tRNA: an 86-nucleotide RNA sequence from Dyadobacter koreensis. By type it is a transfer RNA. The family's consensus secondary structure is taken from published work.

Nucleotides: 086
Base pairs, nucleotide, nucleotide: 001085002084003083005081006080007079010026011025012024028044029043030042031041032040062078063077064076065075066074
Number, partner (000 for none) and nucleotide at each position: 001085g002084c003083c004000a005081g006080g007079g008000u009000g010026g011025u012024g013000g014000a015000a016000c017000u018000g019000g020000u021000a022000g023000a024012c025011a026010c027000g028044c029043a030042g031041g032040a033000c034000u035000u036000a037000a038000a039000a040032u041031c042030c043029u044028g045000u046000g047000a048000g049000c050000u051000g052000u053000a054000a055000g056000g057000c058000u059000c060000g061000u062078a063077c064076g065075g066074g067000u068000u069000c070000g071000a072000u073000u074066c075065c076064c077063g078062u079007c080006c081005c082000c083003g084002g085001u086000a